Notes:
Rfam assigns this 80-nucleotide RNA sequence from Molossus molossus to the family "Small nucleolar RNA U2-19". The literature on the family includes a 2004 paper in Curr Biol by Tycowski et al., "Guide RNAs with 5' Caps and Novel Box C/D snoRNA-like Domains for Modification of snRNAs in Metazoa". Lineage of the source: Eukaryota > Chordata > Dipnotetrapodomorpha > Chiroptera > Molossus.
[Rfam]
Nucleotides: 080
Stems, first nucleotide, its partner, number of pairs: 029059005038049001040047001
Number, partner (000 for none) and nucleotide at each position: 001000g002000a003000u004000c005000a006000a007000u008000g009000a010000u011000g012000a013000a014000a015000a016000u017000a018000g019000c020000c021000u022000g023000a024000u025000a026000u027000g028000a029059g030058c031057a032056u033055c034000a035000g036000a037000a038049g039000a040047c041000c042000u043000u044000c045000c046000a047040g048000c049038c050000c051000a052000c053000c054000c055033g056032a057031u058030g059029c060000a061000u062000g063000a064000u065000c066000u067000c068000u069000a070000c071000a072000g073000u074000u075000c076000u077000g078000u079000g080000a